[Rfam]
RNA sequence: CCACACGGGCGUCCUAUGGCUUUCUAUUCCUAUGUGACUUGUGUUCUCGACGAUCACGUAGGGUUCAAAGCCAUUGGGCGCUCUGGGGA
Numbered sequence: 001c002c003a004c005a006c007g008g009g010c011g012u013c014c015u016a017u018g019g020c021u022u023u024c025u026a027u028u029c030c031u032a033u034g035u036g037a038c039u040u041g042u043g044u045u046c047u048c049g050a051c052g053a054u055c056a057c058g059u060a061g062g063g064u065u066c067a068a069a070g071c072c073a074u075u076g077g078g079c080g081c082u083c084u085g086g087g088g089a
Stems, first nucleotide, its partner, number of pairs: 002088001004086001007083008016074008026065001028063010
The family of this 89-nucleotide RNA from Muraenolepis orangiensis is "mir-135 microRNA precursor family". The organism belongs to Muraenolepis, within Eukaryota. Pairs were carried over by alignment from the consensus structure, which was predicted with PFOLD. It scores 67 bits against the family's covariance model. A reference for the family is Lagos-Quintana et al. (2002), "Identification of tissue-specific microRNAs from mouse", Curr Biol.